[Rfam]
RNA sequence: ACCAGCUGUGCAGCCCUAGAGCAUCUAGGCAGCUUAAAGGGUGCAGGCAUCCGCAGUUGGACCACUUUCUUCGACAGACCCCGUGCAGGCAUGGAGGUCUGUCGCG
Number, nucleotide and partner (000 for none) at each position: 001a000002c060003c059004a058005g057006c056007u055008g054009u053010g033011c032012a000013g030014c029015c000016c028017u027018a026019g025020a000021g000022c000023a000024u000025c019026u018027a017028g016029g014030c013031a000032g011033c010034u000035u000036a000037a000038a000039g052040g051041g050042u049043g048044c000045a000046g000047g000048c043049a042050u041051c040052c039053g009054c008055a007056g006057u005058u004059g003060g002061a000062c000063c000064a000065c000066u000067u000068u000069c000070u000071u000072c000073g103074a000075c000076a100077g099078a098079c097080c000081c094082c093083g092084u091085g090086c000087a000088g000089g000090c085091a084092u083093g082094g081095a000096g000097g079098u078099c077100u076101g000102u000103c073104g000105c000106g000
A member of the RNA family "Xanthomonas sRNA sX2" from Xanthomonas campestris, 106 nucleotides long. Pairs were carried over by alignment from the consensus structure, which was predicted with CMfinder. NCBI's taxonomy places the organism under Bacteria, Pseudomonadati, Gammaproteobacteria, Lysobacteraceae, Xanthomonas campestris pv. campestris. It is one of the family's seed sequences. Rfam classes the family as a small RNA.